[Rfam]
RNA: c-di-GMP-I riboswitch aptamer
RNA sequence: GAUAAUCUUUAGCAAAAUAAGCGAAAGCUUAUGACGCAAAGCUAUAGGGCCUGUAAAAUGGCAGCCAGUUGCACUG
Numbered sequence: 001g002a003u004a005a006u007c008u009u010u011a012g013c014a015a016a017a018u019a020a021g022c023g024a025a026a027g028c029u030u031a032u033g034a035c036g037c038a039a040a041g042c043u044a045u046a047g048g049g050c051c052u053g054u055a056a057a058a059u060g061g062c063a064g065c066c067a068g069u070u071g072c073a074c075u076g
Stems, first nucleotide, its partner, number of pairs: 012037002017032006040070004047066002049062003